[Rfam]
This 60-nucleotide RNA sequence from Bifidobacterium lemurum belongs to the Rfam family "msiK RNA". Pairs were carried over by alignment from the consensus structure, which is taken from published work. It is annotated as a cis-regulatory element. The match comes from Rfam's covariance-model search (62 bits).

RNA sequence: AGUAAAAACCCUUUUACUACGGAUCGUUGAGCACGUACCUGCUCAUGAAAGGAAAAUAUU
Numbered sequence: 001a002g003u004a005a006a007a008a009c010c011c012u013u014u015u016a017c018u019a020c021g022g023a024u025c026g027u028u029g030a031g032c033a034c035g036u037a038c039c040u041g042c043u044c045a046u047g048a049a050a051g052g053a054a055a056a057u058a059u060u
Stems, first nucleotide, its partner, number of pairs: 010052007028045006